[Rfam]
RNA sequence: AGGCAUGAUAGAGGCGCGGUCGCCAUCAGUAGCUUAGUUUAAAACGCCGGGAAGCGUUAAGCGAAAGGGGCUAUCGCCGAAGGGUUCGGCUUUCCCGAGGUCGGAUGCCUGGGAUGCAGGAGAAUAUUCUGCAUACUGUCGCUUUAUGCGGAGAGCUGUCAUGAUC
Numbered sequence: 001a002g003g004c005a006u007g008a009u010a011g012a013g014g015c016g017c018g019g020u021c022g023c024c025a026u027c028a029g030u031a032g033c034u035u036a037g038u039u040u041a042a043a044a045c046g047c048c049g050g051g052a053a054g055c056g057u058u059a060a061g062c063g064a065a066a067g068g069g070g071c072u073a074u075c076g077c078c079g080a081a082g083g084g085u086u087c088g089g090c091u092u093u094c095c096c097g098a099g100g101u102c103g104g105a106u107g108c109c110u111g112g113g114a115u116g117c118a119g120g121a122g123a124a125u126a127u128u129c130u131g132c133a134u135a136c137u138g139u140c141g142c143u144u145u146a147u148g149c150g151g152a153g154a155g156c157u158g159u160c161a162u163g164a165u166c
Stems, first nucleotide, its partner, number of pairs: 006161006016077005022071003032062007081110003084106008111137002114134008139151004
A member of the RNA family "Lysine riboswitch aptamer" from Firmicutes bacterium CAG:240, 166 nucleotides long. The family's consensus secondary structure is taken from published work. A search with the family's covariance model found it, with a score of 89 bits. For this family Rfam cites "The L box regulon: Lysine sensing by leader RNAs of bacterial lysine biosynthesis genes" (Grundy et al., Proc Natl Acad Sci U S A, 2003).